S-element: a 67-nucleotide RNA from Neorhizobium sp. S3-V5DH. From the family's description: This family represents a group of S-elements from p42d and related plasmids. The S-element has multiple functions and is believed to act as a negative regulator of repC transcription, be required for efficient replication and act as a translational enhancer of repC. The family has 29 seed sequences and 231 matches in Rfam 15.1.

[Rfam]
RNA sequence: UGUCAAGAGUUUUGGCGCCUUUCAGGCGGGUGGAUUUCUUUUGCCUAAACCAAGGUGAUGGCAAAUG
Numbered sequence: 001u002g003u004c005a006a007g008a009g010u011u012u013u014g015g016c017g018c019c020u021u022u023c024a025g026g027c028g029g030g031u032g033g034a035u036u037u038c039u040u041u042u043g044c045c046u047a048a049a050c051c052a053a054g055g056u057g058a059u060g061g062c063a064a065a066u067g
Stems, first nucleotide, its partner, number of pairs: 009062003013058001016057004021053002028046001030044005